[Rfam]
RNA sequence: AGGUUCCGAUCAGUUCAAUUAUCGGGAUUACAUGCUGAACCUUUAUGGUUCCUUCAUCCUGUGGAAAGUCCCCGGAGACAGGACGGAAAGCGUCGUAUUGUGUGAUUGUGGAUUCAGGCCGGGUUCGGUGCCAUAGGGAGGGAAUUUACGACCCGUUUGGUUAUCGACCCGUAGCGUUGCUCAGAGCAAAGAUAAUGUUGUUAGAGAUUUAAAAAUCUCAACAAAAUGGGGCUUACUCGGUUGGAACC
Numbered sequence: 001a002g003g004u005u006c007c008g009a010u011c012a013g014u015u016c017a018a019u020u021a022u023c024g025g026g027a028u029u030a031c032a033u034g035c036u037g038a039a040c041c042u043u044u045a046u047g048g049u050u051c052c053u054u055c056a057u058c059c060u061g062u063g064g065a066a067a068g069u070c071c072c073c074g075g076a077g078a079c080a081g082g083a084c085g086g087a088a089a090g091c092g093u094c095g096u097a098u099u100g101u102g103u104g105a106u107u108g109u110g111g112a113u114u115c116a117g118g119c120c121g122g123g124u125u126c127g128g129u130g131c132c133a134u135a136g137g138g139a140g141g142g143a144a145u146u147u148a149c150g151a152c153c154c155g156u157u158u159g160g161u162u163a164u165c166g167a168c169c170c171g172u173a174g175c176g177u178u179g180c181u182c183a184g185a186g187c188a189a190a191g192a193u194a195a196u197g198u199u200g201u202u203a204g205a206g207a208u209u210u211a212a213a214a215a216u217c218u219c220a221a222c223a224a225a226a227u228g229g230g231g232c233u234u235a236c237u238c239g240g241u242u243g244g245a246a247c248c
Stems, first nucleotide, its partner, number of pairs: 002248010016200004023061006037051005066234003070231004082094004106117003119171001121169001125167006131160003136154003204219006
A member of the RNA family "RNase MRP" from Papilio machaon, 248 nucleotides long. The source organism's lineage runs through Eukaryota, Ecdysozoa, Insecta, Papilioninae and Papilio. For this family Rfam cites "Secondary structure of RNase MRP RNA as predicted by phylogenetic comparison" (Schmitt et al., FASEB J, 1993). Rfam classes the family as a ribozyme. The family's consensus secondary structure is taken from published work. The family has 66 seed sequences and 3,510 matches in Rfam 15.1.